[Rfam]
RNA: FMN riboswitch aptamer (RFN element)
Organism: Ramlibacter albus
RNA sequence: AGCUGUCUUCAGGGCGGGGUGGAAGUCCCCACCGGCGGUAGGCGGCGUCACAACCGCGAGCCCGCGAGCGCUUCGCGUAUCGAAAGAGAGCGAGGGUCAGCAGAUCCAGUGCGAUUCUGGAGCCGACGGUCACAGUCCGGAUGAAAGAAGAUGCGU
Numbered sequence: 001a002g003c004u005g006u007c008u009u010c011a012g013g014g015c016g017g018g019g020u021g022g023a024a025g026u027c028c029c030c031a032c033c034g035g036c037g038g039u040a041g042g043c044g045g046c047g048u049c050a051c052a053a054c055c056g057c058g059a060g061c062c063c064g065c066g067a068g069c070g071c072u073u074c075g076c077g078u079a080u081c082g083a084a085a086g087a088g089a090g091c092g093a094g095g096g097u098c099a100g101c102a103g104a105u106c107c108a109g110u111g112c113g114a115u116u117c118u119g120g121a122g123c124c125g126a127c128g129g130u131c132a133c134a135g136u137c138c139g140g141a142u143g144a145a146a147g148a149a150g151a152u153g154c155g156u
Stems, first nucleotide, its partner, number of pairs: 004153007017029003031136002033125002035065004060123002068101002105121005127139003